[Rfam]
Shown here is a 94-nucleotide RNA from Flavobacterium rivulicola, a member of the family "Gammaprotebacteria rimP leader". Gene Ontology term of the family: regulation of gene expression. The source organism's lineage runs through Bacteria, Pseudomonadati, Flavobacteriia, Flavobacteriaceae and Flavobacterium. On this family, see Naville and Gautheret, Genome Biol 2010: "Premature terminator analysis sheds light on a hidden world of bacterial transcriptional attenuation". The family's RNA type in Rfam is cis-regulatory leader.
RNA sequence: GUACAUGUGUUUUGCUUUAUGGUAAAGAUAAAAAAAAACCGCAUUUCAGCGGUUUUUUCAUUUUAUGCUUUUUGGGUUUUCAAACCCUUUUUUG
Numbered sequence: 001g002u003a004c005a006u007g008u009g010u011u012u013u014g015c016u017u018u019a020u021g022g023u024a025a026a027g028a029u030a031a032a033a034a035a036a037a038a039c040c041g042c043a044u045u046u047c048a049g050c051g052g053u054u055u056u057u058u059c060a061u062u063u064u065a066u067g068c069u070u071u072u073u074g075g076g077u078u079u080u081c082a083a084a085c086c087c088u089u090u091u092u093u094g
Stems, first nucleotide, its partner, number of pairs: 034057009074087004